[Rfam]
RNA sequence: UUGCACGUUCAAGUCCUAUUAUGUCUUGAAUGAUCGACACGGGGGGGGCUAUAUGAAAUCUCUCAUAAACCUGAAGUAUUGGCUUAAUAUUCCAUGCUUCGGAUCCUGUCGGGAGAAACAUUU
Numbered sequence: 001u002u003g004c005a006c007g008u009u010c011a012a013g014u015c016c017u018a019u020u021a022u023g024u025c026u027u028g029a030a031u032g033a034u035c036g037a038c039a040c041g042g043g044g045g046g047g048g049c050u051a052u053a054u055g056a057a058a059u060c061u062c063u064c065a066u067a068a069a070c071c072u073g074a075a076g077u078a079u080u081g082g083c084u085u086a087a088u089a090u091u092c093c094a095u096g097c098u099u100c101g102g103a104u105c106c107u108g109u110c111g112g113g114a115g116a117a118a119c120a121u122u123u
Stems, first nucleotide, its partner, number of pairs: 002051002004047001006045001008043003013038003017033001019030001060115005071102007080094003
RNA: Small nucleolar RNA SNORA26